Rfam assigns this 53-nucleotide RNA sequence to the family "Streptococcus sRNA SpF59 (ldcC RNA)".
The family's consensus secondary structure was predicted with mfold.
Rfam classes the family as a small RNA.
Rfam's curators put it in the seed alignment.

[Rfam]
RNA sequence: UGACCACCUGCAUUUGCAGGUAAUGCCAUACGGACAGGCGGGUCAGCUGCCGG
Numbered sequence: 001u002g003a004c005c006a007c008c009u010g011c012a013u014u015u016g017c018a019g020g021u022a023a024u025g026c027c028a029u030a031c032g033g034a035c036a037g038g039c040g041g042g043u044c045a046g047c048u049g050c051c052g053g
Stems, first nucleotide, its partner, number of pairs: 001045005006021006